[Rfam]
RNA sequence: UAUGAAAUUUUUUAUCCAUUUGUAUUGUUAAAAUUUGACAUAGCUAACAAAAUAAUCAAACAAUGACACGUGACAUGCCACGUGUAUUUCAUGCUAAUGUAUAAAUAUCGAUUUUUAAUAAUAAAAAUAGAUAAUUUUUUUAACA
Numbered sequence: 001u002a003u004g005a006a007a008u009u010u011u012u013u014a015u016c017c018a019u020u021u022g023u024a025u026u027g028u029u030a031a032a033a034u035u036u037g038a039c040a041u042a043g044c045u046a047a048c049a050a051a052a053u054a055a056u057c058a059a060a061c062a063a064u065g066a067c068a069c070g071u072g073a074c075a076u077g078c079c080a081c082g083u084g085u086a087u088u089u090c091a092u093g094c095u096a097a098u099g100u101a102u103a104a105a106u107a108u109c110g111a112u113u114u115u116u117a118a119u120a121a122u123a124a125a126a127a128u129a130g131a132u133a134a135u136u137u138u139u140u141u142a143a144c145a
Base pairs, nucleotide, nucleotide: 003143005141006140007139012134013133014132015131016130018128019127020126021125023123024122025121026120028118029117030116031115032114033113
The family of this 145-nucleotide RNA sequence from Gossypium klotzschianum is "MIR7502 microRNA precursor family". The family has 6 seed sequences and 74,505 matches in Rfam 15.1. The family's consensus secondary structure was predicted with RNAalifold. The match comes from Rfam's covariance-model search (88 bits).